RNA sequence: GCCCUGUGGUUCCUGGGAGCUGCAACCUAGUGCAGUACUUCAGGUUAUGGAAAAGGGCAAAAAUUAAUUCUGUAGUUUCAUGCAUGGGGUCUGUGCUUGUGCUAAGCAGUCUCCAUAGCCCGGUUACAGAUACAAAU
Numbered sequence: 001g002c003c004c005u006g007u008g009g010u011u012c013c014u015g016g017g018a019g020c021u022g023c024a025a026c027c028u029a030g031u032g033c034a035g036u037a038c039u040u041c042a043g044g045u046u047a048u049g050g051a052a053a054a055g056g057g058c059a060a061a062a063a064u065u066a067a068u069u070c071u072g073u074a075g076u077u078u079c080a081u082g083c084a085u086g087g088g089g090u091c092u093g094u095g096c097u098u099g100u101g102c103u104a105a106g107c108a109g110u111c112u113c114c115a116u117a118g119c120c121c122g123g124u125u126a127c128a129g130a131u132a133c134a135a136a137u
Stems, first nucleotide, its partner, number of pairs: 001058004007049002012044006019036005070129001072127006082119002084116004089111001091109004097105001